Rfam assigns this 121-nucleotide sequence from Spirochaeta isovalerica to the family "Molybdenum/Tungsten riboswitch aptamer (Moco RNA motif)". A search with the family's covariance model found it, with a score of 61 bits.
RNA sequence: CAAUAACAAUAUCUUCGAACUGUCUCAGCCUAAAAUCAAGCGGGAUAAUGGCAUGCAGUCGAUAGGGUAUGGCGGGAAACGGCCAUGCCUCCCUGUGGAAAGGAGAUUUAUUUCAUGAUUA
Dot-bracket structure: ..((.(....((((((..(((((.(..(((....(((......)))...)))).))))).....(((((((((.(....).)))))))))((....))...)))))).....).)).....